Overview
The record is a 415-nucleotide sequence from Ahrensia sp. R2A130, which matches "Bacterial RNase P class A" in Rfam. Its Rfam clan is "RNaseP clan". Rfam classes the family as a ribozyme. The literature on the family includes a 1998 paper in Annu Rev Biochem by Frank and Pace, "Ribonuclease P: unity and diversity in a tRNA processing ribozyme".
[Rfam]
RNA sequence: CCAGCUGGCUGGACGGCCGCCCUGCACAGAACCGAAAGGGGUGCGGGGAGGAAAGUCCGGGCUCCAUGGAAACACGGUGCCGGAUAACGUCCGGCGGGGGUGACCCCAGGGAAAGUGCAACAGAAAGCAGACCACCGGCCAGCUUCUUCGGGAGUGCCGGCAAGGGUGAAAGGGUGGGGUAAGAGCCCACCGCAGGCGUGGCAACACGCUUGGCACGGCAAACCCCACCGGGAGCAAAACCGAAUAGGGACACGUGAGGUUCGGGCAACUGGAUCGGGCCGGUUUUCAGGCUUUUGCGUGUCCGGGUAGGUUGCACCGAGGUGGCGCGCAAGCGUCAUCCCAGAUGAAUGGUCGUCAGCCGUUUUGCGCUUGCGCAUGGCGGUUACAGAACCCGGCUUACAGGCCAGCUGGUGCC
Numbered sequence: 001c002c003a004g005c006u007g008g009c010u011g012g013a014c015g016g017c018c019g020c021c022c023u024g025c026a027c028a029g030a031a032c033c034g035a036a037a038g039g040g041g042u043g044c045g046g047g048g049a050g051g052a053a054a055g056u057c058c059g060g061g062c063u064c065c066a067u068g069g070a071a072a073c074a075c076g077g078u079g080c081c082g083g084a085u086a087a088c089g090u091c092c093g094g095c096g097g098g099g100g101u102g103a104c105c106c107c108a109g110g111g112a113a114a115g116u117g118c119a120a121c122a123g124a125a126a127g128c129a130g131a132c133c134a135c136c137g138g139c140c141a142g143c144u145u146c147u148u149c150g151g152g153a154g155u156g157c158c159g160g161c162a163a164g165g166g167u168g169a170a171a172g173g174g175u176g177g178g179g180u181a182a183g184a185g186c187c188c189a190c191c192g193c194a195g196g197c198g199u200g201g202c203a204a205c206a207c208g209c210u211u212g213g214c215a216c217g218g219c220a221a222a223c224c225c226c227a228c229c230g231g232g233a234g235c236a237a238a239a240c241c242g243a244a245u246a247g248g249g250a251c252a253c254g255u256g257a258g259g260u261u262c263g264g265g266c267a268a269c270u271g272g273a274u275c276g277g278g279c280c281g282g283u284u285u286u287c288a289g290g291c292u293u294u295u296g297c298g299u300g301u302c303c304g305g306g307u308a309g310g311u312u313g314c315a316c317c318g319a320g321g322u323g324g325c326g327c328g329c330a331a332g333c334g335u336c337a338u339c340c341c342a343g344a345u346g347a348a349u350g351g352u353c354g355u356c357a358g359c360c361g362u363u364u365u366g367c368g369c370u371u372g373c374g375c376a377u378g379g380c381g382g383u384u385a386c387a388g389a390a391c392c393c394g395g396c397u398u399a400c401a402g403g404c405c406a407g408c409u410g411g412u413g414c415c
Base pairs, nucleotide, nucleotide: 001411002410003409004408005407006406007405008404009403010402011400012356013355014354015353016352017351018350020048021047022046023045024044025043026042027041053398054397055396057395058394059393060392061391062234063233064232065231075230076229077228078227079226080094081093082092083091084090095109096107097106098105099104110225111224115223116222117219118218132165133164135160136159137158138157139156173191174190175189176188177187178186192214193212194211195210196209197208198207199206200205238312239311240310241309248303249302250301251300252299253298254297255296256295257294258293259292320339321338322337323336324335325334326333327332